RNA sequence: AUACAGAGUUGAUUUCGAGCUUUUCUGCCUAAGCUGUGAACCGAUUGACAGGAUGGAAGAAAAGCCAAUGGGUAUCCGGGGAAACGCGGGUGCCUCCCCGCAUCAGACGAUGCAUUGGAAAGGAAUAGCUCUCGGAUGACC
Numbered sequence: 001a002u003a004c005a006g007a008g009u010u011g012a013u014u015u016c017g018a019g020c021u022u023u024u025c026u027g028c029c030u031a032a033g034c035u036g037u038g039a040a041c042c043g044a045u046u047g048a049c050a051g052g053a054u055g056g057a058a059g060a061a062a063a064g065c066c067a068a069u070g071g072g073u074a075u076c077c078g079g080g081g082a083a084a085c086g087c088g089g090g091u092g093c094c095u096c097c098c099c100g101c102a103u104c105a106g107a108c109g110a111u112g113c114a115u116u117g118g119a120a121a122g123g124a125a126u127a128g129c130u131c132u133c134g135g136a137u138g139a140c141c
Base pairs, nucleotide, nucleotide: 004134006132012126013125014124015123016122019065020064021063022062023061024060025059026058028056029055034051035050036049070095071094072093073092074091075090076089077088078087080085096118097117
Shown here is a 141-nucleotide sequence from Clostridium sp. CAG:43, a member of the family "Molybdenum/Tungsten riboswitch aptamer (Moco RNA motif)". A search with the family's covariance model found it, with a score of 57 bits. Gene Ontology terms of the family: regulation of gene expression, tungstate binding and molybdenum ion binding. Pairs were carried over by alignment from the consensus structure, which is taken from published work. Lineage of the source: Bacteria > Bacillati > Bacillota > Clostridia > Clostridium.